[Rfam]
RNA sequence: AGUUUCAGGUAAUCGCGGCUAAUGAAUUUUAGUUGAGGAAAGUCCAUGCUCGCACACGCUGAGAUGCGUGUAGUGUUCGUGCUUAGCGAAACAAUAAGCUAAGGCAAUGUAAAAAUUGACGGCAGUGGAAAAUGCUAAAGUCUUCAUCGACCAUGUAUGAGUACACUUGAAAGUGCCACAGUGACGAAGCAUUAUCGGAAACGGUAAUGGUGGAACGCGGUAAACCCCUCGAGCGAGCAACCCAAACUUUGGUAGGGGCACUUUUUCUAAUGCGGAAAUGAACGUAUGAAAGAGGCACAAUAUAUGUGUAGAUAGAUGGUUACCCAUUGAUAAAGAUACCUAUGCUUUAUCAAUUGACAGAACAUGGCUUAUCGAA
Number, nucleotide and partner (000 for none) at each position: 001a000002g000003u000004u376005u375006c374007a372008g324009g323010u322011a321012a320013u319014c318015g000016c035017g034018g033019c032020u031021a030022a000023u000024g000025a000026a000027u000028u000029u000030u021031a020032g019033u018034u017035g016036a000037g000038g000039a000040a370041a369042g368043u000044c367045c366046a365047u364048g363049c237050u236051c235052g234053c233054a071055c070056a069057c068058g067059c066060u000061g000062a000063g000064a000065u000066g059067c058068g057069u056070g055071u054072a000073g000074u000075g000076u000077u232078c231079g230080u000081g228082c103083u102084u101085a100086g099087c098088g000089a000090a000091a000092c000093a000094a000095u000096a000097a000098g087099c086100u085101a084102a083103g082104g120105c118106a117107a116108u115109g000110u000111a000112a000113a000114a000115a108116u107117u106118g105119a000120c104121g227122g226123c000124a167125g166126u165127g164128g000129a000130a000131a000132a158133u157134g156135c155136u000137a000138a000139a000140g151141u150142c000143u000144u000145c000146a000147u000148c000149g000150a141151c140152c000153a000154u000155g135156u134157a133158u132159g000160a000161g000162u000163a000164c127165a126166c125167u124168u000169g000170a000171a000172a000173g225174u224175g221176c220177c219178a000179c000180a000181g000182u000183g000184a000185c000186g000187a000188a000189g000190c209191a208192u207193u206194a205195u204196c203197g202198g000199a000200a000201a000202c197203g196204g195205u194206a193207a192208u191209g190210g000211u000212g000213g000214a000215a000216c000217g000218c000219g177220g176221u175222a000223a000224a174225c173226c122227c121228c081229u000230c079231g078232a077233g053234c052235g051236a050237g049238c000239a000240a000241c257242c256243c255244a000245a000246a000247c000248u000249u000250u000251g000252g000253u000254a000255g243256g242257g241258g000259c000260a000261c294262u293263u292264u291265u290266u289267c288268u000269a000270a000271u000272g000273c000274g000275g000276a000277a000278a000279u000280g000281a000282a000283c000284g000285u000286a000287u000288g267289a266290a265291a264292g263293a262294g261295g309296c308297a307298c306299a305300a000301u000302a000303u000304a000305u299306g298307u297308g296309u295310a000311g000312a000313u000314a000315g000316a000317u000318g014319g013320u012321u011322a010323c009324c008325c000326a354327u353328u352329g351330a350331u349332a348333a347334a346335g000336a000337u000338a000339c000340c000341u000342a000343u000344g000345c000346u334347u333348u332349a331350u330351c329352a328353a327354u326355u000356g000357a000358c000359a000360g000361a000362a000363c048364a047365u046366g045367g044368c042369u041370u040371a000372u007373c000374g006375a005376a004

The record is a 376-nucleotide RNA sequence from Facklamia sp. 252, which matches "Bacterial RNase P class B" in Rfam. Ribonuclease P (RNase P) is a ubiquitous endoribonuclease, found in archaea, bacteria and eukarya as well as chloroplasts and mitochondria. Its best characterised activity is the generation of mature 5'-ends of tRNAs by cleaving the 5'-leader elements of precursor-tRNAs. Cellular RNase Ps are ribonucleoproteins. RNA from bacterial RNase Ps retains its catalytic activity in the absence of the protein subunit, i.e. it is a ribozyme. Lineage of the source: Bacteria > Bacillati > Bacillota > Aerococcaceae > Facklamia.